The record is a 120-nucleotide RNA from Pseudomonas sp. SSM44, which matches "Pseudomon-1/ErsA RNA" in Rfam.
RNA sequence: AUGCUCCUUAGAUGUGAUUUAGUGUUGGCAGAAAACCGGGCACUCCCUUUCCUAGCACAGCCCGGUAGUUAACCCCGAGCCUACCUCCCCAUAGAAGCUCGGGGUUUUUUUUGCCUGCGA
Numbered sequence: 001a002u003g004c005u006c007c008u009u010a011g012a013u014g015u016g017a018u019u020u021a022g023u024g025u026u027g028g029c030a031g032a033a034a035a036c037c038g039g040g041c042a043c044u045c046c047c048u049u050u051c052c053u054a055g056c057a058c059a060g061c062c063c064g065g066u067a068g069u070u071a072a073c074c075c076c077g078a079g080c081c082u083a084c085c086u087c088c089c090c091a092u093a094g095a096a097g098c099u100c101g102g103g104g105u106u107u108u109u110u111u112u113g114c115c116u117g118c119g120a
Stems, first nucleotide, its partner, number of pairs: 035066007071107002073104008082095001
Rfam classes the family as a small RNA. Gene Ontology terms of the family: response to antibiotic, sRNA-mediated gene silencing and mRNA binding. A reference for the family is Ferrara et al. (2015), "Post-transcriptional regulation of the virulence-associated enzyme AlgC by the sigma(22) -dependent small RNA ErsA of Pseudomonas aeruginosa", Environ Microbiol. Rfam describes the family as follows. Functions to regulate the AlgC enzyme. Based on this information, the new name ErsA for the RNA was adopted. Negatively regulates major porin oprD expression responsible for uptake of carbapenem antibiotics, by base pairing with oprD 5'UTR (leading to increased bacterial resistance to meropenem).Positively regulates amrZ mRNA and contributes to biofilm formation and motility.